[Rfam]
RNA sequence: UUUGUCGAGGAGCGCUGCACCCCGUGAAGGCACGGGGGAGGCUCGACAGGCGGGCAACAAUGACAACGGCGCUCGACCGCA
Numbered sequence: 001u002u003u004g005u006c007g008a009g010g011a012g013c014g015c016u017g018c019a020c021c022c023c024g025u026g027a028a029g030g031c032a033c034g035g036g037g038g039a040g041g042c043u044c045g046a047c048a049g050g051c052g053g054g055c056a057a058c059a060a061u062g063a064c065a066a067c068g069g070c071g072c073u074c075g076a077c078c079g080c081a
Stems, first nucleotide, its partner, number of pairs: 002049007021036006
SAH (S-adenosyl-L-homocysteine) riboswitch aptamer: an 81-nucleotide RNA sequence from Spiribacter sp. 2438. Lineage of the source: Bacteria > Pseudomonadati > Chromatiales > Ectothiorhodospiraceae > Spiribacter. On this family, see Wang et al., Mol Cell 2008: "Riboswitches that sense S-adenosylhomocysteine and activate genes involved in coenzyme recycling".